The family of this 129-nucleotide sequence from Orycteropus afer is "Small nucleolar RNA SNORA33". By type it is an H/ACA-box small nucleolar RNA. It scores 94 bits against the family's covariance model. Rfam's curators write: ACA33 is a member of the H/ACA class of snoRNA that guide the sites of modification of uridines to pseudouridines.
RNA sequence: AAGCGAGCCAUUGACUUAGCUUACCUGGAUGUGUUUCUGCAGAAUUUAGGAAAAGCUGGCAACAGUACAUACAUGUUACGAGCCUGAAAGAUACUGAGAUAAUUAAGGCCCUUGAAAAUGGUUACAGCA
Numbered sequence: 001a002a003g004c005g006a007g008c009c010a011u012u013g014a015c016u017u018a019g020c021u022u023a024c025c026u027g028g029a030u031g032u033g034u035u036u037c038u039g040c041a042g043a044a045u046u047u048a049g050g051a052a053a054a055g056c057u058g059g060c061a062a063c064a065g066u067a068c069a070u071a072c073a074u075g076u077u078a079c080g081a082g083c084c085u086g087a088a089a090g091a092u093a094c095u096g097a098g099a100u101a102a103u104u105a106a107g108g109c110c111c112u113u114g115a116a117a118a119u120g121g122u123u124a125c126a127g128c129a
Stems, first nucleotide, its partner, number of pairs: 003060002006057002016043002019040002072120002082109004087104002091100002